[Rfam]
RNA sequence: AGUAGUAGCAAAUACUUAAAUAAGAACUUUAAGGACUAAAGUAGGGAAAGGUUCUAUAUAAAUAGUAGUUAGAUAUAGGUUAGUUAAUCCUAAGAGAUAGGGUAAUUCUAUUUUAAUGUUAGUGCUUGCGCUGCGCCCUUAAAAGGGAAGCUAGUUAAUAUUCUAGUACCUAGAUGUAGAUUCUCUGCAGUAACGUAACUAAGAGCAGAGACCUUAGCGGGAGCCCUAAGAAGAGUUCUCUUUUCUUCUUAACAGUCUAUUACCCUAAAAUUAGUUUAUCUAGAGCUAGGGUUUAAUAGCUAGAAGAGCGCUAUACUUUUGCAGCGUUUAGUGCGCUCCUAAUAAGCCUUAAAAAUCUGCUUAAAGAAAUAGUUUUUACGCUAGGUUGUACUUAUAACCGCAGCAGGUCUCUAAGGUAAAAAGCCUCUAGUUAA
Numbered sequence: 001a002g003u004a005g006u007a008g009c010a011a012a013u014a015c016u017u018a019a020a021u022a023a024g025a026a027c028u029u030u031a032a033g034g035a036c037u038a039a040a041g042u043a044g045g046g047a048a049a050g051g052u053u054c055u056a057u058a059u060a061a062a063u064a065g066u067a068g069u070u071a072g073a074u075a076u077a078g079g080u081u082a083g084u085u086a087a088u089c090c091u092a093a094g095a096g097a098u099a100g101g102g103u104a105a106u107u108c109u110a111u112u113u114u115a116a117u118g119u120u121a122g123u124g125c126u127u128g129c130g131c132u133g134c135g136c137c138c139u140u141a142a143a144a145g146g147g148a149a150g151c152u153a154g155u156u157a158a159u160a161u162u163c164u165a166g167u168a169c170c171u172a173g174a175u176g177u178a179g180a181u182u183c184u185c186u187g188c189a190g191u192a193a194c195g196u197a198a199c200u201a202a203g204a205g206c207a208g209a210g211a212c213c214u215u216a217g218c219g220g221g222a223g224c225c226c227u228a229a230g231a232a233g234a235g236u237u238c239u240c241u242u243u244u245c246u247u248c249u250u251a252a253c254a255g256u257c258u259a260u261u262a263c264c265c266u267a268a269a270a271u272u273a274g275u276u277u278a279u280c281u282a283g284a285g286c287u288a289g290g291g292u293u294u295a296a297u298a299g300c301u302a303g304a305a306g307a308g309c310g311c312u313a314u315a316c317u318u319u320u321g322c323a324g325c326g327u328u329u330a331g332u333g334c335g336c337u338c339c340u341a342a343u344a345a346g347c348c349u350u351a352a353a354a355a356u357c358u359g360c361u362u363a364a365a366g367a368a369a370u371a372g373u374u375u376u377u378a379c380g381c382u383a384g385g386u387u388g389u390a391c392u393u394a395u396a397a398c399c400g401c402a403g404c405a406g407g408u409c410u411c412u413a414a415g416g417u418a419a420a421a422a423g424c425c426u427c428u429a430g431u432u433a434a
Base pairs, nucleotide, nucleotide: 015033016032017031018030019029020028034432035431036430037429043412044411045410046409049392050391054078055077056076057075058074059073063071064070085388086387087386089146090145094140095139096112097111098110100109101108102107120133121132122131150167151166152165153164154163170384171383172382173381175380176379177378178377179376180374186197187196188195204361205360206359207358208357209356213346214345215344216343219340220339221338222337223336224335226331227330228329229249230248231247232246233245234244254301255300256299262292263291264290265289266288267287271283272282273281274280309326310325311324312323314321315320398407399406414426415425416424417423
Dot-bracket structure: ..............((((((.......))))))((((.....((((..((...((((((...((.....)).))))))......(((.((...(((((.(((....)))))).......(((........))).....))....))...(((((........)))))..((((.((((((.....(((......)))......((((((...((((..((((((.(((((((((.........))))))....(((.....((((((...((((.....))))...))))))......))).......((((.((....)).))))..)))...))))))..)))).........))))))............).))))))))).)))..)).....((......)).)))).((((.....))))..))))..
Eukaryotic large subunit ribosomal RNA: a 434-nucleotide part of an RNA from Plenodomus lingam. The family's consensus secondary structure is taken from published work. Rfam's curators put it in the seed alignment. The source organism's lineage runs through Eukaryota, Pezizomycotina, Leptosphaeriaceae, Plenodomus and Plenodomus lingam.